[Rfam]
RNA sequence: CAUAUUAGGUUUGUUAUGGUUGCUAUUUUUUUUUAGACGAACAAUAAUAAGCCCCGAAUGAAAUUGAGUAAAUUAUUUUCUC
Numbered sequence: 001c002a003u004a005u006u007a008g009g010u011u012u013g014u015u016a017u018g019g020u021u022g023c024u025a026u027u028u029u030u031u032u033u034u035a036g037a038c039g040a041a042c043a044a045u046a047a048u049a050a051g052c053c054c055c056g057a058a059u060g061a062a063a064u065u066g067a068g069u070a071a072a073u074u075a076u077u078u079u080c081u082c
Stems, first nucleotide, its partner, number of pairs: 008065005015058001018055001024049004030044002066077002